The family of this 63-nucleotide RNA sequence from Homo sapiens is "U7 small nuclear RNA". It scores 35 bits against the family's covariance model. NCBI's taxonomy places the organism under Eukaryota, Deuterostomia, Craniata, Mammalia, Homo.
RNA sequence: AAGUGUUACAGCUUUUUAAAAGAAUUUAUAUAACAGGUUUUCAGUUUUCACUAGAAAACCACU
Numbered sequence: 001a002a003g004u005g006u007u008a009c010a011g012c013u014u015u016u017u018a019a020a021a022g023a024a025u026u027u028a029u030a031u032a033a034c035a036g037g038u039u040u041u042c043a044g045u046u047u048u049c050a051c052u053a054g055a056a057a058a059c060c061a062c063u
Stems, first nucleotide, its partner, number of pairs: 036060007043052003